Rfam assigns this 350-nucleotide RNA from Shimia marina to the family "Alphaproteobacteria transfer-messenger RNA".
It is annotated as a non-coding RNA gene.
The family's consensus secondary structure is taken from published work.
NCBI's taxonomy places the organism under Bacteria, Alphaproteobacteria, Rhodobacterales, Roseobacteraceae, Shimia.
Nucleotides: 350
Stems, first nucleotide, its partner, number of pairs: 040053005057188005067181002069177004081166002085163003091107005108148007189204003195214002198212003316331004322347006
Number, partner (000 for none) and nucleotide at each position: 001000g002000c003000g004000c005000u006000u007000g008000c009000a010000c011000c012000c013000c014000g015000c016000g017000c018000g019000c020000a021000a022000c023000a024000c025000c026000a027000c028000u029000a030000u031000c032000u033000a034000g035000a036000a037000c038000a039000u040053g041052u042051u043050c044049c045000c046000u047000c048000g049044g050043g051042a052041a053040c054000u055000a056000u057188g058187g059186a060185c061184a062000u063000a064000a065000a066000c067181g068180c069177g070176c071175u072174u073000g074000u075000a076000a077000u078000a079000a080000a081166c082165g083000g084000a085163u086162c087161g088000g089000a090000c091107c092106c093105g094104g095103g096000g097000g098000c099000g100000g101000u102000a103095c104094c105093c106092g107091g108148c109147g110146u111145c112144u113143c114142c115000a116000c117000c118000a119000a120000a121000c122000a123000u124000c125000c126000u127000u128000c129000a130000u131000u132000u133000g134000g135000g136000g137000a138000u139000c140000a141000u142114g143113g144112g145111g146110a147109c148108g149000a150000a151000a152000c153000a154000g155000g156000a157000u158000c159000g160000a161087c162086g163085g164000a165082c166081g167000u168000c169000u170000a171000a172000a173000g174072a175071a176070g177069u178000u179000a180068g181067c182000u183000u184061u185060g186059u187058c188057u189204c190203g191202g192000c193000u194000g195214u196213c197000u198212g199211c200210c201000a202191c203190c204189g205000u206000u207000a208000u209000c210200g211199g212198c213196g214195a215000a216000a217000a218000c219000u220000g221000u222000a223000c224000a225000a226000u227000u228000g229000c230000a231000a232000a233000u234000g235000a236000c237000a238000a239000u240000c241000g242000u243000g244000c245000u246000c247000c248000g249000g250000u251000a252000g253000c254000a255000g256000u257000c258000g259000c260000u261000g262000c263000g264000u265000a266000a267000g268000c269000a270000g271000u272000g273000c274000c275000u276000a277000a278000c279000a280000c281000c282000g283000a284000a285000a286000u287000c288000u289000a290000a291000g292000u293000c294000c295000u296000g297000a298000c299000g300000c301000u302000a303000g304000c305000u306000g307000c308000c309000u310000c311000a312000g313000g314000c315000g316331g317330g318329g319328u320000c321000c322347g323346c324345a325344g326343g327342a328319a329318c330317c331316u332000g333000g334000c335000a336000a337000c338000a339000g340000a341000a342327u343326c344325c345324u346323g347322c348000a349000c350000c